[Rfam]
RNA sequence: AAACCUAGAAAAGCGACGGACAGUGUCCUUUAGUCCGUUGCUCUUCUGGGAUUUU
Numbered sequence: 001a002a003a004c005c006u007a008g009a010a011a012a013g014c015g016a017c018g019g020a021c022a023g024u025g026u027c028c029u030u031u032a033g034u035c036c037g038u039u040g041c042u043c044u045u046c047u048g049g050g051a052u053u054u055u
Stems, first nucleotide, its partner, number of pairs: 001053002004050007012042010
RNA: MIR8008 microRNA precursor family
Organism: Solanum commersonii